[Rfam]
RNA sequence: AGCAAAAAUGAGGAGGCGUAUGAUCUGAAGUAUCUCAUUCUCAUGUUGAUUCAUGUUUCAUGGUCUUCAAAGUUCUCGGAUUGUU
Number, nucleotide and partner (000 for none) at each position: 001a085002g084003c083004a082005a081006a000007a000008a000009u000010g000011a000012g000013g000014a000015g000016g000017c000018g000019u000020a000021u000022g000023a000024u000025c000026u000027g000028a000029a000030g000031u000032a000033u000034c000035u000036c000037a000038u000039u000040c000041u000042c000043a000044u000045g000046u000047u000048g000049a000050u000051u000052c000053a000054u000055g000056u000057u000058u000059c000060a000061u000062g000063g000064u000065c000066u000067u000068c000069a000070a000071a000072g000073u000074u000075c000076u000077c000078g000079g000080a000081u005082u004083g003084u002085u001
RNA: Small nucleolar RNA R160
Organism: Digitaria exilis